[Rfam]
RNA sequence: UGGACCGAUGAUGAUUACUGGUGGAGUCUGAGUCAUGGACGGUGAAUACUAUGUAACUGGAACUCUGAGGUCCAA
Numbered sequence: 001u002g003g004a005c006c007g008a009u010g011a012u013g014a015u016u017a018c019u020g021g022u023g024g025a026g027u028c029u030g031a032g033u034c035a036u037g038g039a040c041g042g043u044g045a046a047u048a049c050u051a052u053g054u055a056a057c058u059g060g061a062a063c064u065c066u067g068a069g070g071u072c073c074a075a
Stems, first nucleotide, its partner, number of pairs: 002073005